[Rfam]
RNA sequence: GCCGGUCCUCGGUAGUGGCUCCCGGAAGCACCGCGUGAGCGGGGCACCGAGAGCUUCGAUCGAAGACCGGC
Numbered sequence: 001g002c003c004g005g006u007c008c009u010c011g012g013u014a015g016u017g018g019c020u021c022c023c024g025g026a027a028g029c030a031c032c033g034c035g036u037g038a039g040c041g042g043g044g045c046a047c048c049g050a051g052a053g054c055u056u057c058g059a060u061c062g063a064a065g066a067c068c069g070g071c
Stems, first nucleotide, its partner, number of pairs: 001071007009063005017055005023049003028045002
RNA: Actino-pnp RNA
Organism: Streptomyces sp. SID7982